RNA sequence: AGUGGCAUGUGAUGUGAAAAAAUAUGUAUGCUAUAUACUCAAUGGAAUUUUCCAUGUGUGGACUAAUAAUCUCCGCUUAUUAUCUGAUGCCUUC
Numbered sequence: 001a002g003u004g005g006c007a008u009g010u011g012a013u014g015u016g017a018a019a020a021a022a023u024a025u026g027u028a029u030g031c032u033a034u035a036u037a038c039u040c041a042a043u044g045g046a047a048u049u050u051u052c053c054a055u056g057u058g059u060g061g062a063c064u065a066a067u068a069a070u071c072u073c074c075g076c077u078u079a080u081u082a083u084c085u086g087a088u089g090c091c092u093u094c
Base pairs, nucleotide, nucleotide: 004091005090006089007088
Dot-bracket structure: ...((((................................................................................))))...

A member of the RNA family "Small nucleolar RNA R16" from Leersia perrieri, 94 nucleotides long.
NCBI's taxonomy places the organism under Eukaryota, Euphyllophyta, Poaceae, Oryzeae, Leersia.
The family's RNA type in Rfam is C/D-box small nucleolar RNA.
For this family Rfam cites "Purified box C/D snoRNPs are able to reproduce site-specific 2'-O-methylation of target RNA in vitro" (Galardi et al., Mol Cell Biol, 2002).
Gene Ontology terms of the family: RNA processing and nucleolus.